[Rfam]
RNA sequence: CGUGGCUUUGGGCCACGAUCUCCGGCAAAUUGUGGGUGUGCCUGCCCCAUGCGGCUGCGCACAAAAGGCGUGGUCGUGAGUGAUGGGGAAGGCGGCGCUCGUCGCCGUCAGGU
Number, nucleotide and partner (000 for none) at each position: 001c017002g016003u015004g014005g013006c000007u000008u000009u000010g000011g000012g000013c005014c004015a003016c002017g001018a000019u000020c038021u000022c036023c035024g000025g033026c032027a031028a000029a000030u000031u027032g026033u025034g000035g023036g022037u000038g020039u000040g000041c000042c000043u112044g000045c088046c087047c086048c085049a084050u083051g077052c076053g000054g074055c073056u072057g000058c070059g069060c068061a000062c000063a000064a000065a000066a000067g000068g060069c059070g058071u000072g056073g055074u054075c000076g052077u051078g000079a000080g000081u000082g000083a050084u049085g048086g047087g046088g045089a000090a000091g109092g108093c107094g106095g105096c104097g000098c000099u000100c000101g000102u000103c000104g096105c095106c094107g093108u092109c091110a000111g000112g043113u000
Rfam assigns this 113-nucleotide RNA sequence from Neomesorhizobium albiziae to the family "Group II catalytic intron D1-D4-2". Pairs were carried over by alignment from the consensus structure. Group II introns are found in rRNA, tRNA and mRNA of organelles in fungi, plants and protists, and also in mRNA in bacteria. A search with the family's covariance model found it, with a score of 43 bits. A reference for the family is Bonen and Vogel (2001), "The ins and outs of group II introns", Trends Genet.